mir-3492 microRNA precursor family: a 78-nucleotide sequence from Schistosoma bovis.
Its family is annotated with RISC complex and miRNA-mediated post-transcriptional gene silencing in the Gene Ontology.
A search with the family's covariance model found it, with a score of 52 bits.
NCBI's taxonomy places the organism under Eukaryota, Bilateria, Protostomia, Trematoda, Schistosoma.

[Rfam]
RNA sequence: AGCUUUUCGAAUCCGUGAUGAGAUUUCAUCAGACAUCAACCCAUUAGGGCUAAUCAGACUCCCAAGAUAGGUGAAGUU
Numbered sequence: 001a002g003c004u005u006u007u008c009g010a011a012u013c014c015g016u017g018a019u020g021a022g023a024u025u026u027c028a029u030c031a032g033a034c035a036u037c038a039a040c041c042c043a044u045u046a047g048g049g050c051u052a053a054u055c056a057g058a059c060u061c062c063c064a065a066g067a068u069a070g071g072u073g074a075a076g077u078u
Stems, first nucleotide, its partner, number of pairs: 002077005008071001011068003016064002020061003024058003028054002